[Rfam]
RNA sequence: UCUUCUGCCAGGCUGCACUAAGUCCUAACAACUGCGUGGAUGGCCUGUCCCCCUUUAGUGCGCAGGUUGCAAGGCUGCUGCAAAGUAAUUUGCGGCAGGCUGGCAAGUGGUGACUGAGGGGCGGCUCAGGCUGGCGACAGAGGCGAAACUCAGCCCUGCGCACAGAUGGGGGAGAACUGGCUUAAGCAGUUGUUAG
Number, nucleotide and partner (000 for none) at each position: 001u000002c000003u000004u000005c000006u000007g000008c000009c000010a000011g000012g000013c000014u000015g000016c000017a000018c000019u000020a000021a000022g000023u000024c000025c196026u195027a194028a193029c192030a191031a190032c000033u000034g000035c000036g000037u000038g000039g000040a000041u000042g182043g181044c180045c179046u000047g177048u176049c172050c171051c000052c170053c169054u168055u000056u166057a000058g163059u162060g161061c160062g159063c158064a157065g156066g155067u106068u105069g104070c103071a000072a101073g100074g000075c098076u097077g096078c095079u094080g093081c092082a091083a090084a089085g000086u000087a000088a000089u084090u083091u082092g081093c080094g079095g078096c077097a076098g075099g000100c073101u072102g000103g070104c069105a068106a067107g000108u112109g000110g000111u000112g108113a000114c153115u152116g151117a150118g149119g000120g000121g000122c000123g000124g144125c143126u142127c000128a000129g000130g000131c140132u139133g138134g000135c000136g000137a000138c133139a132140g131141a000142g126143g125144c124145g000146a000147a000148a000149c118150u117151c116152a115153g114154c000155c066156c065157u064158g063159c062160g061161c060162a059163c058164a000165g000166a056167u000168g054169g053170g052171g050172g049173a000174g000175a000176a048177c047178u000179g045180g044181c043182u042183u000184a000185a000186g000187c000188a000189g000190u031191u030192g029193u028194u027195a026196g025

Rfam assigns this 196-nucleotide RNA from Effrenium voratum to the family "Protozoan signal recognition particle RNA". It scores 66 bits against the family's covariance model. Lineage of the source: Eukaryota > Dinophyceae > Suessiales > Symbiodiniaceae > Effrenium. Rfam 15.1 lists 111 matches to the family in 100 species. Rfam classes the family as a non-coding RNA gene. The base pairs follow the family's consensus structure, which is taken from published work.